[Rfam]
RNA sequence: UCUGAGGCCCGGCGUGGAUACAGAGAAGUCGGGCUUUCAGG
Numbered sequence: 001u002c003u004g005a006g007g008c009c010c011g012g013c014g015u016g017g018a019u020a021c022a023g024a025g026a027a028g029u030c031g032g033g034c035u036u037u038c039a040g041g
Stems, first nucleotide, its partner, number of pairs: 001041007009032005